[Rfam]
RNA sequence: CUAACACCGAGCCCGACGGGGCGAAAAGCCGGAACGCCUAUCGGCCCGGUGCUGGCACCUAUUUAGAUG
Dot-bracket structure: (((.((((..((((....)))).....(((((......[.)))))..)))).)))..........]...

About this RNA
A member of the RNA family "int-alpA RNA" from Candidimonas nitroreducens, 69 nucleotides long. Acidobacteria (1 example), Planctomycetes (1 example), Proteobacteria. It scores 46 bits against the family's covariance model. It is annotated as a small RNA. NCBI's taxonomy places the organism under Bacteria, Pseudomonadati, Betaproteobacteria, Burkholderiales, Candidimonas.